RNA sequence: UUUCCGUCACAACGGCUUCCUGGCGUGGCGGCGAACUUCAAUGGAGCG
Numbered sequence: 001u002u003u004c005c006g007u008c009a010c011a012a013c014g015g016c017u018u019c020c021u022g023g024c025g026u027g028g029c030g031g032c033g034a035a036c037u038u039c040a041a042u043g044g045a046g047c048g
Stems, first nucleotide, its partner, number of pairs: 004031007013022002015047003019044002
RNA: SAM/SAH riboswitch aptamer
Organism: Wenxinia marina